[Rfam]
RNA sequence: CAGCAAAUAAAUACGGCACCUCAUAUAUUUUCGGGGAUAUGGCCUGAAAGUCUCUACCCGGCACCGUAAAUGCUGGACUAUGAGGGAAGGUGAAUCAUUG
Dot-bracket structure: ..................(((((((...(((((((.......)))))))........((((((.......))))))..)))))))...............
RNA: Purine riboswitch aptamer
Organism: Lentibacillus cibarius